Rfam assigns this 76-nucleotide RNA to the family "Fluoride riboswitch aptamer (crcB RNA motif)".

Nucleotides: 076
Stems, first nucleotide, its partner, number of pairs: 010026004016067005046057003
Number, partner (000 for none) and nucleotide at each position: 001000a002000a003000u004000a005000g006000u007000g008000g009000c010026g011025g012024g013023a014000a015000u016067g017066a018065a019064g020063u021000g022000c023013u024012c025011c026010c027000u028000u029000c030000a031000u032000a033000u034000g035000a036000u037000a038000u039000g040000a041000a042000a043000a044000c045000c046057g047056c048055a049000a050000a051000c052000a053000c054000g055048u056047g057046c058000u059000g060000a061000u062000g063020a064019c065018u066017u067016c068000u069000a070000c071000g072000a073000u074000u075000u076000u